The family of this 65-nucleotide RNA from Oppiella nova is "mir-29 microRNA precursor family". About the family: This family represents the microRNA (miRNA) precursors mir-29. The family's consensus secondary structure was predicted with PFOLD. NCBI's taxonomy places the organism under Eukaryota, Arachnida, Acariformes, Oppioidea, Oppiella. On this family, see Ambros, Cell 2001: "microRNAs: tiny regulators with great potential".
RNA sequence: AUGUGACCGAGUUCAUUUGGUGGUUAGCUGGCUAUGAUACUAGCACCAUGUGAAUUCAGUUGUGU
Numbered sequence: 001a002u003g004u005g006a007c008c009g010a011g012u013u014c015a016u017u018u019g020g021u022g023g024u025u026a027g028c029u030g031g032c033u034a035u036g037a038u039a040c041u042a043g044c045a046c047c048a049u050g051u052g053a054a055u056u057c058a059g060u061u062g063u064g065u
Stems, first nucleotide, its partner, number of pairs: 001065004005060001007059001009057007018048005025042003